The family of this 73-nucleotide RNA from Azospirillum sp. TSH58 is "terC RNA". The organism belongs to Azospirillum, within Bacteria. A search with the family's covariance model found it, with a score of 52 bits. Pairs were carried over by alignment from the consensus structure, which is taken from published work.
RNA sequence: ACCAGGGUCCGGGCCCCUCUGGCAGCCGAGUCGUUGGUUACGAGGUCGGGGGCUGCGAUGUCGGAUCUCUUCA
Numbered sequence: 001a002c003c004a005g006g007g008u009c010c011g012g013g014c015c016c017c018u019c020u021g022g023c024a025g026c027c028g029a030g031u032c033g034u035u036g037g038u039u040a041c042g043a044g045g046u047c048g049g050g051g052g053c054u055g056c057g058a059u060g061u062c063g064g065a066u067c068u069c070u071u072c073a
Base pairs, nucleotide, nucleotide: 006067007066008065009064010063011062012061022056023055024054025053026052027051